Rfam assigns this 106-nucleotide RNA sequence from Gemella sp. zg-570 to the family "SAM riboswitch aptamer (S box leader)".
RNA sequence: AACUUAUCAAGAGUGAGUGAGGGAUAAGGCCCGAUGAACUCCAGCAACCUAGUAUAAAAUACAAAGGUGCUAACCUAAGCAAAGUAUUUACUUUGAACGAUGAGAA
Numbered sequence: 001a002a003c004u005u006a007u008c009a010a011g012a013g014u015g016a017g018u019g020a021g022g023g024a025u026a027a028g029g030c031c032c033g034a035u036g037a038a039c040u041c042c043a044g045c046a047a048c049c050u051a052g053u054a055u056a057a058a059a060u061a062c063a064a065a066g067g068u069g070c071u072a073a074c075c076u077a078a079g080c081a082a083a084g085u086a087u088u089u090a091c092u093u094u095g096a097a098c099g100a101u102g103a104g105a106a
Stems, first nucleotide, its partner, number of pairs: 003104006013042001015041003021032003029076001043071004048067002050064001052062002080095006

Taxonomically the source falls in Gemella (Bacteria, Bacillota, Bacilli, Gemellaceae). The match comes from Rfam's covariance-model search (78 bits).